Annotation
Rfam assigns this 125-nucleotide sequence from Candidatus Syntrophocurvum alkaliphilum to the family "Molybdenum/Tungsten riboswitch aptamer (Moco RNA motif)". Gene Ontology terms of the family: tungstate binding, molybdenum ion binding and regulation of gene expression.
Nucleotides: 125
Base pairs, nucleotide, nucleotide: 004118006116012108013107014106015105016104019058020057021056022055023054025052026051027050028049029048033045034044035043036042063089064088065087066086067085068084071082072081073080074079090100091099
Number, partner (000 for none) and nucleotide at each position: 001000u002000a003000a004118a005000a006116c007000a008000c009000u010000u011000a012108u013107c014106u015105c016104c017000g018000a019058g020057u021056g022055g023054c024000u025052u026051u027050g028049u029048c030000u031000a032000a033045g034044g035043u036042a037000u038000a039000u040000g041000c042036u043035a044034c045033u046000a047000u048029g049028a050027u051026g052025a053000u054023g055022c056021u057020a058019c059000c060000g061000a062000u063089g064088g065087g066086u067085u068084u069000u070000u071082a072081g073080u074079a075000g076000a077000a078000a079074u080073g081072c082071u083000u084068a085067a086066g087065c088064c089063u090100c091099c092000c093000g094000u095000a096000u097000u098000u099091g100090g101000a102000a103000a104016g105015g106014a107013g108012a109000g110000u111000g112000a113000a114000a115000u116006g117000a118004u119000a120000u121000c122000c123000a124000g125000a